[Rfam]
RNA sequence: GCUGUGUGGUGAGCACAAAGACAACUAUUCUUUCGCCUUUUACUAAAGAAUACCGUGUGCUCGCCAACAAUUCACAAUUUAAAUGUAGUCUAUGAAUUUUUAUUUAUUUAUUAUAAGAU
Numbered sequence: 001g002c003u004g005u006g007u008g009g010u011g012a013g014c015a016c017a018a019a020g021a022c023a024a025c026u027a028u029u030c031u032u033u034c035g036c037c038u039u040u041u042a043c044u045a046a047a048g049a050a051u052a053c054c055g056u057g058u059g060c061u062c063g064c065c066a067a068c069a070a071u072u073c074a075c076a077a078u079u080u081a082a083a084u085g086u087a088g089u090c091u092a093u094g095a096a097u098u099u100u101u102a103u104u105u106a107u108u109u110a111u112u113a114u115a116a117g118a119u
Base pairs, nucleotide, nucleotide: 001078003076004075007066008065009064010063011062012061013060014059015058016057017056026052027051028050029049030048031047032046033045096119098118099117100116101115102114103113
A member of the RNA family "U5 spliceosomal RNA" from Digitaria exilis, 119 nucleotides long. U5 RNA is a component of both types of known spliceosome. The precise function of this molecule is unknown, though it is known that the 5' loop is required for splice site selection and p220 binding, and that both the 3' stem-loop and the Sm site are important for Sm protein binding and cap methylation. The match comes from Rfam's covariance-model search (73 bits). Pairs were carried over by alignment from the consensus structure, which is taken from published work. The organism belongs to Digitaria, within Eukaryota. Rfam links the family to the GO terms U5 snRNP and spliceosomal tri-snRNP complex assembly.